This 86-nucleotide sequence from Subsaximicrobium wynnwilliamsii belongs to the Rfam family "tRNA". The match comes from Rfam's covariance-model search (53 bits). Clan: tRNA clan.
RNA sequence: GCGCACGUGGCGAAAUUGGUAGACGCGCUGGCUUGAGGGGCCAGUGACCGUUUUAGGUCGUGGAAGUUCGAGUCUUCUCGUGCGCA
Numbered sequence: 001g002c003g004c005a006c007g008u009g010g011c012g013a014a015a016u017u018g019g020u021a022g023a024c025g026c027g028c029u030g031g032c033u034u035g036a037g038g039g040g041c042c043a044g045u046g047a048c049c050g051u052u053u054u055a056g057g058u059c060g061u062g063g064a065a066g067u068u069c070g071a072g073u074c075u076u077c078u079c080g081u082g083c084g085c086a
Stems, first nucleotide, its partner, number of pairs: 001085007010026003028044005062078005
Dot-bracket structure: (((((((..(((...........))).(((((.......))))).................(((((.......)))))))))))).